[Rfam]
RNA sequence: CUGGAGAGAGGGCGCGGACGCAAGGUCUGCACCCCACCGAAGGAGCAACGCAAGGCCGCAAGGCCUGAGCGGAAUCUCUCAGGUACCAAGGACAG
Numbered sequence: 001c002u003g004g005a006g007a008g009a010g011g012g013c014g015c016g017g018a019c020g021c022a023a024g025g026u027c028u029g030c031a032c033c034c035c036a037c038c039g040a041a042g043g044a045g046c047a048a049c050g051c052a053a054g055g056c057c058g059c060a061a062g063g064c065c066u067g068a069g070c071g072g073a074a075u076c077u078c079u080c081a082g083g084u085a086c087c088a089a090g091g092a093c094a095g
Stems, first nucleotide, its partner, number of pairs: 001095003010034003036084003039080002043078003049071002
Rfam assigns this 95-nucleotide RNA from Roseateles toxinivorans to the family "Glycine riboswitch aptamer". The source organism's lineage runs through Bacteria, Pseudomonadota, Betaproteobacteria, Sphaerotilaceae and Roseateles. The match comes from Rfam's covariance-model search (43 bits).